[Rfam]
RNA: mir-135 microRNA precursor family
RNA sequence: UCACUUCUGUGUUUUAUGGCUUUCUAUUCCUAUGCGAUUGGUUACUGCUGUGUCACAUAGGGUUCAAAGCCAUUGGAUACAGAGUGGA
Numbered sequence: 001u002c003a004c005u006u007c008u009g010u011g012u013u014u015u016a017u018g019g020c021u022u023u024c025u026a027u028u029c030c031u032a033u034g035c036g037a038u039u040g041g042u043u044a045c046u047g048c049u050g051u052g053u054c055a056c057a058u059a060g061g062g063u064u065c066a067a068a069g070c071c072a073u074u075g076g077a078u079a080c081a082g083a084g085u086g087g088a
Stems, first nucleotide, its partner, number of pairs: 002087001005084010016073008026064001028062007036054002
Dot-bracket structure: .(..((((((((((.((((((((..(.(((((((.((...............)).))))))).).)))))))).))))))))))..).